This 141-nucleotide RNA sequence from Pyrus ussuriensis x Pyrus communis belongs to the Rfam family "U4 spliceosomal RNA".
[Rfam]
RNA sequence: AUCUUUGCGCUUCGGGCAAUGAUGUAGCCAAUGAGGUUCUAAACGUGGUGUGUUUAUUGUUGGUUGAAAAUUAUUUCUAGACUUCCUUUUAAGUUUGGGUUCAGCCUUAUGUCUUUGAGAAUUUUUGAAAUCUCUUUGGAG
Numbered sequence: 001a002u003c004u005u006u007g008c009g010c011u012u013c014g015g016g017c018a019a020u021g022a023u024g025u026a027g028c029c030a031a032u033g034a035g036g037u038u039c040u041a042a043a044c045g046u047g048g049u050g051u052g053u054u055u056a057u058u059g060u061u062g063g064u065u066g067a068a069a070a071u072u073a074u075u076u077c078u079a080g081a082c083u084u085c086c087u088u089u090u091a092a093g094u095u096u097g098g099g100u101u102c103a104g105c106c107u108u109a110u111g112u113c114u115u116u117g118a119g120a121a122u123u124u125u126u127g128a129a130a131u132c133u134c135u136u137u138g139g140a141g
Stems, first nucleotide, its partner, number of pairs: 021054005027049003035044001037042001087119003091115003095111001096109002098106002134141002
The match comes from Rfam's covariance-model search (70 bits).